A member of the RNA family "tRNA" from Euglena gracilis, 73 nucleotides long. Rfam's curators put it in the seed alignment. Gene Ontology term of the family: triplet codon-amino acid adaptor activity.
RNA sequence: GGGGGUAUAGCUCAGUUGGUAGAGCGUCUGCCUUACAAGCAGAAUGUCAGCGGUUCGAAUCCGUUUGCCCUCA
Numbered sequence: 001g002g003g004g005g006u007a008u009a010g011c012u013c014a015g016u017u018g019g020u021a022g023a024g025c026g027u028c029u030g031c032c033u034u035a036c037a038a039g040c041a042g043a044a045u046g047u048c049a050g051c052g053g054u055u056c057g058a059a060u061c062c063g064u065u066u067g068c069c070c071u072c073a
Stems, first nucleotide, its partner, number of pairs: 001072007010025004027043005049065005
Dot-bracket structure: (((((((..((((........)))).(((((.......))))).....(((((.......)))))))))))).